[Rfam]
Nucleotides: 126
Base pairs, nucleotide, nucleotide: 003055004054005053006052008050009049010048016043017042018041019040020039021038022037023034024033025032026031066119067118068117069116070115071114072113073112078108079107080106081105082104083103084102085101
Number, partner (000 for none) and nucleotide at each position: 001000c002000u003055g004054g005053a006052g007000a008050c009049u010048a011000g012000a013000a014000a015000a016043u017042u018041g019040a020039g021038u022037c023034c024033u025032u026031g027000a028000a029000g030000u031026c032025a033024a034023g035000c036000u037022g038021a039020c040019u041018c042017g043016g044000c045000u046000u047000g048010u049009a050008g051000c052006c053005u054004c055003c056000u057000a058000a059000a060000u061000g062000a063000a064000a065000a066119g067118g068117u069116a070115g071114a072113u073112a074000g075000a076000a077000c078108a079107g080106g081105u082104c083103u084102u085101g086000u087000u088000u089000g090000a091000a092000a093000a094000a095000c096000a097000a098000a099000u100000u101085c102084a103083a104082g105081a106080c107079c108078u109000a110000c111000u112073u113072a114071u115070c116069u117068a118067c119066c120000a121000a122000c123000a124000g125000c126000a

Small Cajal body specific RNA 15: a 126-nucleotide RNA sequence from Hipposideros armiger. From the family's description: scaRNAs are a specific class of small nuclear RNAs which localise to the Cajal bodies and guide the modification of RNA polymerase II transcribed spliceosomal RNAs U1, U2, U4, U5 and U12. ACA45 belongs to the H/ACA box class of guide RNAs as it has the predicted hairpin-hinge-hairpin-tail structure, the conserved H/ACA-box motifs and is found associated with GAR1. ACA45 is predicted to guide the pseudouridylation of residue U37 of the U2 spliceosomal snRNA. The organism belongs to Hipposideros, within Eukaryota. The literature on the family includes a 2002 paper in EMBO J by Darzacq et al., "Cajal body-specific small nuclear RNAs: a novel class of 2'-O-methylation and pseudouridylation guide RNAs". Rfam classes the family as a small Cajal body RNA. It scores 134 bits against the family's covariance model.